[Rfam]
RNA sequence: UAUAACGCGAUGAGAUGGAAAGUAAUCUUUGAGGCAUUGGUAGAGAGCUUGGGGUUGGUGAAACCAAGUAGUGAUAAGAAGAUGAAAAUGGCCAUUGAGUGGACUUUUUGAGCUUGUGAAGUAAGGAAAGUACGGGGCGCCCGUUAUAGCGACACGAUUUCAAAGAAGAAUCAAUGGAAUCGAUUGAGGUUUAUUCAGUGAUGAAUGAACGAAUAAAGGUGGUAACACGGUAUUAUUGAAAUGAUCGUCCUUUGU
Numbered sequence: 001u002a003u004a005a006c007g008c009g010a011u012g013a014g015a016u017g018g019a020a021a022g023u024a025a026u027c028u029u030u031g032a033g034g035c036a037u038u039g040g041u042a043g044a045g046a047g048c049u050u051g052g053g054g055u056u057g058g059u060g061a062a063a064c065c066a067a068g069u070a071g072u073g074a075u076a077a078g079a080a081g082a083u084g085a086a087a088a089u090g091g092c093c094a095u096u097g098a099g100u101g102g103a104c105u106u107u108u109u110g111a112g113c114u115u116g117u118g119a120a121g122u123a124a125g126g127a128a129a130g131u132a133c134g135g136g137g138c139g140c141c142c143g144u145u146a147u148a149g150c151g152a153c154a155c156g157a158u159u160u161c162a163a164a165g166a167a168g169a170a171u172c173a174a175u176g177g178a179a180u181c182g183a184u185u186g187a188g189g190u191u192u193a194u195u196c197a198g199u200g201a202u203g204a205a206u207g208a209a210c211g212a213a214u215a216a217a218g219g220u221g222g223u224a225a226c227a228c229g230g231u232a233u234u235a236u237u238g239a240a241a242u243g244a245u246c247g248u249c250c251u252u253u254g255u
Stems, first nucleotide, its partner, number of pairs: 007100002015095004025083006036072003047069006103131007133143003189210007216252004227248005